[Rfam]
RNA sequence: AGCCGAUCAGAAAAGAGCUUAUUCAUAAAAAUACAGUCUCACCCAGUAAACCUGUACUUUUACGUAUAAGCUGGUCUCUGAUUGAA
Numbered sequence: 001a002g003c004c005g006a007u008c009a010g011a012a013a014a015g016a017g018c019u020u021a022u023u024c025a026u027a028a029a030a031a032u033a034c035a036g037u038c039u040c041a042c043c044c045a046g047u048a049a050a051c052c053u054g055u056a057c058u059u060u061u062a063c064g065u066a067u068a069a070g071c072u073g074g075u076c077u078c079u080g081a082u083u084g085a086a
Stems, first nucleotide, its partner, number of pairs: 004084008013075001016072007024064001026062005032056005